[Rfam]
RNA sequence: GUUUAUUGAUGAUCUCCCAUUUGUGCCAUUAUGUCUGGGUCAGGAACCCUGUGAUGGAAACUAAGAGCUAGAU
Numbered sequence: 001g002u003u004u005a006u007u008g009a010u011g012a013u014c015u016c017c018c019a020u021u022u023g024u025g026c027c028a029u030u031a032u033g034u035c036u037g038g039g040u041c042a043g044g045a046a047c048c049c050u051g052u053g054a055u056g057g058a059a060a061c062u063a064a065g066a067g068c069u070a071g072a073u
Stems, first nucleotide, its partner, number of pairs: 001073004
Shown here is a 73-nucleotide RNA from Molossus molossus, a member of the family "Small nucleolar RNA SNORD66". It is annotated as a C/D-box small nucleolar RNA. Pairs were carried over by alignment from the consensus structure, which was predicted with RNAalifold. Lineage of the source: Eukaryota > Vertebrata > Theria > Laurasiatheria > Molossus.